The record is an 81-nucleotide sequence from Sinanaerobacter chloroacetimidivorans, which matches "pemK RNA" in Rfam.

RNA sequence: UUAAAGCUACUUCUGCCCAGCCACAGACUCAAGCAAUGGGGGCAGCUCGGUGAGAACCACGGAGAGGUGAAAUUCCUAUGA
Numbered sequence: 001u002u003a004a005a006g007c008u009a010c011u012u013c014u015g016c017c018c019a020g021c022c023a024c025a026g027a028c029u030c031a032a033g034c035a036a037u038g039g040g041g042g043c044a045g046c047u048c049g050g051u052g053a054g055a056a057c058c059a060c061g062g063a064g065a066g067g068u069g070a071a072a073u074u075c076c077u078a079u080g081a
Stems, first nucleotide, its partner, number of pairs: 012078001013045006046064003050060003065077003

By type it is a cis-regulatory element.